The record is an 87-nucleotide RNA from Quercus lobata, which matches "Small nucleolar RNA R44/J54/Z268 family" in Rfam. NCBI's taxonomy places the organism under Eukaryota, Viridiplantae, Mesangiospermae, rosids, Quercus. Rfam classes the family as a C/D-box small nucleolar RNA. A search with the family's covariance model found it, with a score of 84 bits. The base pairs follow the family's consensus structure, which was predicted with PFOLD.
Nucleotides: 087
Stems, first nucleotide, its partner, number of pairs: 002086005
Number, partner (000 for none) and nucleotide at each position: 001000a002086u003085u004084g005083c006082a007000a008000g009000u010000g011000a012000u013000g014000a015000u016000a017000a018000a019000a020000c021000a022000g023000a024000c025000a026000g027000g028000g029000a030000c031000a032000u033000c034000a035000g036000c037000a038000c039000u040000c041000c042000u043000u044000u045000g046000g047000g048000a049000g050000a051000a052000u053000g054000g055000u056000g057000a058000c059000a060000a061000g062000u063000c064000u065000a066000a067000u068000g069000g070000g071000a072000a073000u074000c075000u076000c077000u078000c079000u080000g081000a082006u083005g084004c085003a086002a087000u